[Rfam]
mir-196 microRNA precursor family: a 75-nucleotide sequence from Conger conger. Gene Ontology terms of the family: gene silencing by miRNA and RISC complex. NCBI's taxonomy places the organism under Eukaryota, Teleostomi, Euteleostomi, Elopomorpha, Conger.
RNA sequence: CGCGUGGUUUAGGUAGUUUCAUGUUGUUGGGCUCCGGUUUCUACCUCUACAACACGAAACUGUCUUCAUUGCCAC
Numbered sequence: 001c002g003c004g005u006g007g008u009u010u011a012g013g014u015a016g017u018u019u020c021a022u023g024u025u026g027u028u029g030g031g032c033u034c035c036g037g038u039u040u041c042u043a044c045c046u047c048u049a050c051a052a053c054a055c056g057a058a059a060c061u062g063u064c065u066u067c068a069u070u071g072c073c074a075c
Base pairs, nucleotide, nucleotide: 004072005071006070007069008068011065012064013063014062015061016060017059018058019057022054023053024052025051026050027049029047030046031045